[Rfam]
RNA sequence: GCCCCACCAGCAGCAGCACAGAAGUAAGGGUGGCAAUACCACACAUGCCACCCUUACUUCUGUGCUGCUGCUGGCGGC
Numbered sequence: 001g002c003c004c005c006a007c008c009a010g011c012a013g014c015a016g017c018a019c020a021g022a023a024g025u026a027a028g029g030g031u032g033g034c035a036a037u038a039c040c041a042c043a044c045a046u047g048c049c050a051c052c053c054u055u056a057c058u059u060c061u062g063u064g065c066u067g068c069u070g071c072u073g074g075c076g077g078c
Stems, first nucleotide, its partner, number of pairs: 001078003005074001007073001010072001012069008021059001023058008

Rfam assigns this 78-nucleotide RNA from Chrysemys picta to the family "mir-16 microRNA precursor family". Its Rfam clan is "mir-15 clan". Pairs were carried over by alignment from the consensus structure, which was predicted with PFOLD. The match comes from Rfam's covariance-model search (36 bits). Taxonomically the source falls in Chrysemys picta (Eukaryota, Sauropsida, Sauria, Chrysemys).